[Rfam]
Nucleotides: 102
Base pairs, nucleotide, nucleotide: 018088020086021085022084023083024082025081030048031047032046033045034044035043058078059077060076061075062074063073064072
Number, partner (000 for none) and nucleotide at each position: 001000a002000u003000g004000a005000u006000a007000a008000u009000u010000g011000a012000a013000u014000a015000a016000a017000a018088g019000c020086g021085u022084c023083g024082u025081a026000u027000a028000u029000a030048u031047c032046c033045g034044a035043g036000a037000a038000u039000a040000u041000g042000g043035c044034u045033c046032g047031g048030a049000c050000g051000u052000u053000u054000c055000u056000a057000c058078c059077g060076g061075a062074a063073c064072a065000c066000c067000u068000c069000a070000a071000a072064u073063g074062u075061u076060c077059u078058g079000a080000c081025u082024a083023c084022g085021a086020u087000c088018u089000a090000u091000c092000a093000c094000g095000a096000c097000g098000g099000a100000g101000a102000u

A member of the RNA family "Purine riboswitch aptamer" from Sporosarcina sp. Marseille-Q4063, 102 nucleotides long. The base pairs follow the family's consensus structure, which is taken from published work. The organism belongs to Sporosarcina, within Bacteria.